[Rfam]
RNA: Group II catalytic intron D1-D4-5
Organism: Clostridium perfringens
RNA sequence: UAGAACUCUUAACUUGAAAAGUGGAAUGAUAGGGUAACGUCUUGAAACGCUUUCUCUAAUACUCCGACAUGCAGUAACUUUGUGUGAAAGUUAUUGUGUGAAGCUCGGUGAAGUCGGCAGAAAAUUACCGUAGCAGAUAAUAAAAUGUUAUCUAACGAAAGUGUUCUAGAGGUAGAAUAUGUAGUUGAUAUGCCGGGAGUCGUUAAA
Numbered sequence: 001u002a003g004a005a006c007u008c009u010u011a012a013c014u015u016g017a018a019a020a021g022u023g024g025a026a027u028g029a030u031a032g033g034g035u036a037a038c039g040u041c042u043u044g045a046a047a048c049g050c051u052u053u054c055u056c057u058a059a060u061a062c063u064c065c066g067a068c069a070u071g072c073a074g075u076a077a078c079u080u081u082g083u084g085u086g087a088a089a090g091u092u093a094u095u096g097u098g099u100g101a102a103g104c105u106c107g108g109u110g111a112a113g114u115c116g117g118c119a120g121a122a123a124a125u126u127a128c129c130g131u132a133g134c135a136g137a138u139a140a141u142a143a144a145a146u147g148u149u150a151u152c153u154a155a156c157g158a159a160a161g162u163g164u165u166c167u168a169g170a171g172g173u174a175g176a177a178u179a180u181g182u183a184g185u186u187g188a189u190a191u192g193c194c195g196g197g198a199g200u201c202g203u204u205a206a207a
Stems, first nucleotide, its partner, number of pairs: 018053006031043004054199004064108004068100011115195005123186006129157003144153001161180008